[Rfam]
RNA sequence: GAGGAAAAGAAGAAGCACCCGCUUCUCACCUGAUUGACGCUUAUGUCAGCUGUUAGCAGGUUUUACGUGAACAUUUUUUAAGUUUAAAUUUGUCCGUAAAGUGUGGGUGUUUUCAUCCACACUUUUUUUAUUUG
Numbered sequence: 001g002a003g004g005a006a007a008a009g010a011a012g013a014a015g016c017a018c019c020c021g022c023u024u025c026u027c028a029c030c031u032g033a034u035u036g037a038c039g040c041u042u043a044u045g046u047c048a049g050c051u052g053u054u055a056g057c058a059g060g061u062u063u064u065a066c067g068u069g070a071a072c073a074u075u076u077u078u079u080a081a082g083u084u085u086a087a088a089u090u091u092g093u094c095c096g097u098a099a100a101g102u103g104u105g106g107g108u109g110u111u112u113u114c115a116u117c118c119a120c121a122c123u124u125u126u127u128u129u130a131u132u133u134g
Base pairs, nucleotide, nucleotide: 011026012025013024014023015022016021028061029060030059036054037053038052039050040049102121103120104119105118106117107116108115109114
A member of the RNA family "Ribosomal protein L20 leader" from Cytobacillus solani, 134 nucleotides long. Its family is annotated with regulation of gene expression in the Gene Ontology. The family's consensus secondary structure was predicted with CMfinder. The literature on the family includes a 1994 paper in Prog Nucleic Acid Res Mol Biol by Zengel and Lindahl, "Diverse mechanisms for regulating ribosomal protein synthesis in Escherichia coli". The family's RNA type in Rfam is cis-regulatory leader. This family is a putative r-protein leader autoregulatory structure found in B. subtilis and other low-GC Gram-positive bacteria. It is located in the 5' untranslated regions of mRNAs encoding initiation factor 3 followed by ribosomal proteins L35 and L20 (infC-rpmI-rplT). The source organism's lineage runs through Bacteria, Bacillati, Bacilli, Caryophanales and Cytobacillus.